transfer-messenger RNA: a 367-nucleotide RNA from Marihabitans asiaticum. The organism belongs to Marihabitans, within Bacteria. The family's consensus secondary structure is taken from published work. By type it is a non-coding RNA gene. A search with the family's covariance model found it, with a score of 150 bits.
RNA sequence: GGGGGUGAUCGGUUUCGACACUGACCGGUUCAUCAGGGGAAGCGGGCCGAGGAUGCACGGUCAUCUCGAGAACGCCCCGUGCAAACCCAAUAGGUGCCAACUCCAAGCGCACCGACUUCGCCCUCGCCGCCUGAGCGAGCCCGAAGUCCGUUGGCCUAGGCUUGAUCUCGGCCUAGAUCCCAGCGUCAGCUAGAGAUCUUGCUGCGCAGCGUCGUCGGGGCGCUGCGUGGGACUUCUACCCGACUGGGCCUGUCAGGGAACGUGUGCGUGCGAGCCCUGAGGCCGAGAAAAUCCAUAGCGCACUGCGCCCGGAGAAGCCCUUUUGCUCCGUCAGUGGACGCGGGUUCGAUUCCCGCCACCUCCACCA
Dot-bracket structure: (((((((...........(((((((.((..((..((((....((((([[[[[.(((((((...]]]]]........)))))))......................................(.(((..((........)).))).)..((((((.(((((((.[[[[[[)))))))...)))))).......]]]]]]...(((((((((...[[[[[...))))))))).........]]]]]..(((((..(((....((.[[[[.[[))....))))))))...........]]..]]]]...)))))......))))..)).)).)))))))...(((((.......))))))))))))....